About this RNA:
A member of the RNA family "RT-2 RNA", 219 nucleotides long. Rfam classes the family as a small RNA.
[Rfam]
RNA sequence: CGAGGUCAUAUGGAGUAGCGAAAGUGAAAGACGACCUUCGCAAAAGGAGAUAUACUUCCCUGGGUGAAAAUCCUUAAAACUGCCUUACGACGAUCACACACGGACGCUGCUUGCAUGGCGAAGAAUUGCGCUACCUUCGUUUCAUGUGUGGGAUCAAAGUAGUUUAGAUGCGCACCUACAAAACAACUAUGCGAAAGGCGAAAACUUAUUAUGACAAGC
Numbered sequence: 001c002g003a004g005g006u007c008a009u010a011u012g013g014a015g016u017a018g019c020g021a022a023a024g025u026g027a028a029a030g031a032c033g034a035c036c037u038u039c040g041c042a043a044a045a046g047g048a049g050a051u052a053u054a055c056u057u058c059c060c061u062g063g064g065u066g067a068a069a070a071u072c073c074u075u076a077a078a079a080c081u082g083c084c085u086u087a088c089g090a091c092g093a094u095c096a097c098a099c100a101c102g103g104a105c106g107c108u109g110c111u112u113g114c115a116u117g118g119c120g121a122a123g124a125a126u127u128g129c130g131c132u133a134c135c136u137u138c139g140u141u142u143c144a145u146g147u148g149u150g151g152g153a154u155c156a157a158a159g160u161a162g163u164u165u166a167g168a169u170g171c172g173c174a175c176c177u178a179c180a181a182a183a184c185a186a187c188u189a190u191g192c193g194a195a196a197g198g199c200g201a202a203a204a205c206u207u208a209u210u211a212u213g214a215c216a217a218g219c
Base pairs, nucleotide, nucleotide: 004036005035006034007033019024063075064074066072082199083198084197085196086195088193089192091191092155093154094153095152097150098149099148100147101146106114107113117141118140119139120138121137122136123135159190160189161188162187163186165185166177167176